[Rfam]
RNA: mir-8834 microRNA precursor family
Organism: Nyctereutes procyonoides
RNA sequence: AGGAGGAACAACUACAGUGGCGGAGGCCAGCUCUGGAGCCCUGGGUUCAGCUCCCGCAGUAACUACAGAGCUCUCAGUCUGCAGGGGCCUGGAUGUUCUGGGGGCGG
Numbered sequence: 001a002g003g004a005g006g007a008a009c010a011a012c013u014a015c016a017g018u019g020g021c022g023g024a025g026g027c028c029a030g031c032u033c034u035g036g037a038g039c040c041c042u043g044g045g046u047u048c049a050g051c052u053c054c055c056g057c058a059g060u061a062a063c064u065a066c067a068g069a070g071c072u073c074u075c076a077g078u079c080u081g082c083a084g085g086g087g088c089c090u091g092g093a094u095g096u097u098c099u100g101g102g103g104g105c106g107g
Base pairs, nucleotide, nucleotide: 002099003098004097005096007094009091010090012087013086019079020078021077023075024074025073029072030071031070032069033068034067035066037064041059042058043057